[Rfam]
Rfam assigns this 92-nucleotide sequence from Streptomyces spinoverrucosus to the family "sodF sRNA". Gene Ontology terms of the family: mRNA binding, regulation of mRNA stability and negative regulation of translation. The base pairs follow the family's consensus structure.
RNA sequence: UCGUCCUGCCUCGUGAUCGUCUUCUCACCUUUCACGCGGGCAGGCGGAUGAGAGGAGGCCCCCCGCGAGGACGUGACUCGCGGGGGGCCUCU
Dot-bracket structure: (((.(((((((.((((..(.........)..))))..))))))))))......((((((((((((((((.......))))))))))))))))

On this family, see Kim et al., Nucleic Acids Res 2014: "Inverse regulation of Fe- and Ni-containing SOD genes by a Fur family regulator Nur through small RNA processed from 3'UTR of the sodF mRNA". It is annotated as a small RNA.